[Rfam]
RNA sequence: UCACGCGAUGCGGGAGAGCCCGCCGAUCACCUCGGCAGGCACCGAAGGAGCAAUUCUCCCCACCAAUCUCUCAGGUACGUGUACCGCAUCGAACAG
Dot-bracket structure: .....((((((((......(.(((.........))).)..(((((..(((....(......).....))))).))).......)))))))).....
Numbered sequence: 001u002c003a004c005g006c007g008a009u010g011c012g013g014g015a016g017a018g019c020c021c022g023c024c025g026a027u028c029a030c031c032u033c034g035g036c037a038g039g040c041a042c043c044g045a046a047g048g049a050g051c052a053a054u055u056c057u058c059c060c061c062a063c064c065a066a067u068c069u070c071u072c073a074g075g076u077a078c079g080u081g082u083a084c085c086g087c088a089u090c091g092a093a094c095a096g
Stems, first nucleotide, its partner, number of pairs: 006091008020038001022036003041076003044072002048070003055062001
Shown here is a 96-nucleotide RNA sequence from Agreia sp. Leaf210, a member of the family "Glycine riboswitch aptamer". A search with the family's covariance model found it, with a score of 60 bits. The organism belongs to Agreia, within Bacteria. About the family: This family represents the bacterial glycine riboswitch.